This 188-nucleotide RNA from Haloquadratum sp. J07HQX50 belongs to the Rfam family "Sense overlapping transcript RNA 0042 (sot)". From the family's description: It is associated with IS1341-type transposase (tnpB) genes, at the 3'-end in H. salinarum NRC-1. The literature on the family includes a 2015 paper in RNA Biol by Gomes-Filho et al., "Sense overlapping transcripts in IS1341-type transposase genes are functional non-coding RNAs in archaea". Lineage of the source: Archaea > Methanobacteriota > Halobacteria > Haloferacaceae > Haloquadratum.
[Rfam]
RNA sequence: AGGUACUCCCGAGUCUCGUCACGGAUGGCGGCGAUAGGGAUAACGGCUGGUUGGCACAGCCAGCGGUUCAGCUGUUCGACCGUCGUGAGGGUGUUUUCACCUCGCGAGAACAGGUCGUGAACCGCGAACCCUCAUAUCCUAACUCAACGGCGCGGUGCCGUGGGAUUCCCGCGUCUUCAGGCGCGGGA
Numbered sequence: 001a002g003g004u005a006c007u008c009c010c011g012a013g014u015c016u017c018g019u020c021a022c023g024g025a026u027g028g029c030g031g032c033g034a035u036a037g038g039g040a041u042a043a044c045g046g047c048u049g050g051u052u053g054g055c056a057c058a059g060c061c062a063g064c065g066g067u068u069c070a071g072c073u074g075u076u077c078g079a080c081c082g083u084c085g086u087g088a089g090g091g092u093g094u095u096u097u098c099a100c101c102u103c104g105c106g107a108g109a110a111c112a113g114g115u116c117g118u119g120a121a122c123c124g125c126g127a128a129c130c131c132u133c134a135u136a137u138c139c140u141a142a143c144u145c146a147a148c149g150g151c152g153c154g155g156u157g158c159c160g161u162g163g164g165a166u167u168c169c170c171g172c173g174u175c176u177u178c179a180g181g182c183g184c185g186g187g188a
Base pairs, nucleotide, nucleotide: 003044004043007040008039009038010037013035014034015033016031017030018029019028020027021026045061046060047059048058049057064124065123066122067121068120069119071116072113073112074111075110076109077108090103091102093100094099137165138164139163140162167188168187169186170185171184172183173182174181175180